Description: The record is a 183-nucleotide RNA sequence from Pararge aegeria, which matches "Wolbachia sRNA 46" in Rfam. A reference for the family is Mayoral et al. (2014), "Wolbachia small noncoding RNAs and their role in cross-kingdom communications", Proc Natl Acad Sci U S A. The pairing is the family consensus, mapped onto this sequence. Taxonomically the source falls in Pararge aegeria (Eukaryota, Panarthropoda, Amphiesmenoptera, Obtectomera).
RNA sequence: UUUACUUUAUGACGGUGUCAUCCCAGUGCUUGACACUGGGAUCCAGGAAAUUUGAUUGGAUAUUAAGUUUAUGAGCAUAAAAGCAGUUAAUUUUAUGUUAAAACACAACAUUUUUGAUGAGGCUGUAUUAAGAGAUGGAUCCCAGUGUCAGCUACUCGGAUGACACCAUUUGCUACGCAAUUU
Numbered sequence: 001u002u003u004a005c006u007u008u009a010u011g012a013c014g015g016u017g018u019c020a021u022c023c024c025a026g027u028g029c030u031u032g033a034c035a036c037u038g039g040g041a042u043c044c045a046g047g048a049a050a051u052u053u054g055a056u057u058g059g060a061u062a063u064u065a066a067g068u069u070u071a072u073g074a075g076c077a078u079a080a081a082a083g084c085a086g087u088u089a090a091u092u093u094u095a096u097g098u099u100a101a102a103a104c105a106c107a108a109c110a111u112u113u114u115u116g117a118u119g120a121g122g123c124u125g126u127a128u129u130a131a132g133a134g135a136u137g138g139a140u141c142c143c144a145g146u147g148u149c150a151g152c153u154a155c156u157c158g159g160a161u162g163a164c165a166c167c168a169u170u171u172g173c174u175a176c177g178c179a180a181u182u183u
Stems, first nucleotide, its partner, number of pairs: 006177001008175002016165008025156004030151016
Dot-bracket structure: .....(.((......((((((((.((((.((((((((((((((((..........................................................................................)))))))))))))))).)))).))))))))........)).)......